[Rfam]
Ruegeria cis2 sRNA: a 152-nucleotide sequence from Roseovarius gaetbuli. On this family, see Rivers et al., Front Microbiol 2016: "Experimental Identification of Small Non-Coding RNAs in the Model Marine Bacterium Ruegeria pomeroyi DSS-3". Rfam classes the family as a small RNA. Lineage of the source: Bacteria > Pseudomonadati > Pseudomonadota > Rhodobacterales > Roseovarius. The base pairs follow the family's consensus structure, which was predicted with RNAfold. It scores 94 bits against the family's covariance model.

RNA sequence: GAGGUCUUGUGCGGCAUAUAGUUGAUGAACACAAAGCCGCGCGUCUGAUCGAUGAUGUGAAACAGCGGGUUCCAGUCAAACAGGCUUACCAUAAAGGCGGGCAGGGUGUUGACCACGAACAUCUUGCCCGAGGCGAUCAUGUUGGCGCGCUG
Numbered sequence: 001g002a003g004g005u006c007u008u009g010u011g012c013g014g015c016a017u018a019u020a021g022u023u024g025a026u027g028a029a030c031a032c033a034a035a036g037c038c039g040c041g042c043g044u045c046u047g048a049u050c051g052a053u054g055a056u057g058u059g060a061a062a063c064a065g066c067g068g069g070u071u072c073c074a075g076u077c078a079a080a081c082a083g084g085c086u087u088a089c090c091a092u093a094a095a096g097g098c099g100g101g102c103a104g105g106g107u108g109u110u111g112a113c114c115a116c117g118a119a120c121a122u123c124u125u126g127c128c129c130g131a132g133g134c135g136a137u138c139a140u141g142u143u144g145g146c147g148c149g150c151u152g
Base pairs, nucleotide, nucleotide: 003032005031007029008028012024013023014022036056038054039053040051041050063152064151065150066149067148069081070080071079086145087144088143090141091140092139098132100129101128102126103125104124105123106122107121109118110117111116